[Rfam]
RNA sequence: UGUAUAAUGAUGAUAACCAUGCGUGUCAGCUGACUCGGUUUCCUCAUGCUGUAUUGUAACUCAGGUUGGCGUUUUGUUGGCCUGGGUGCUCAAUGCAGCAGGGAUCCAGAGACAUGAUCUUACUUCACUUCUGAAUACA
Numbered sequence: 001u002g003u004a005u006a007a008u009g010a011u012g013a014u015a016a017c018c019a020u021g022c023g024u025g026u027c028a029g030c031u032g033a034c035u036c037g038g039u040u041u042c043c044u045c046a047u048g049c050u051g052u053a054u055u056g057u058a059a060c061u062c063a064g065g066u067u068g069g070c071g072u073u074u075u076g077u078u079g080g081c082c083u084g085g086g087u088g089c090u091c092a093a094u095g096c097a098g099c100a101g102g103g104a105u106c107c108a109g110a111g112a113c114a115u116g117a118u119c120u121u122a123c124u125u126c127a128c129u130u131c132u133g134a135a136u137a138c139a
Stems, first nucleotide, its partner, number of pairs: 001139004044103002047100006
This 139-nucleotide RNA sequence from Dissostichus mawsoni belongs to the Rfam family "Small nucleolar RNA SNORD10". Its family is annotated with nucleolus and RNA processing in the Gene Ontology. The source organism's lineage runs through Eukaryota, Eumetazoa, Actinopteri, Eurypterygia and Dissostichus. Rfam classes the family as a C/D-box small nucleolar RNA.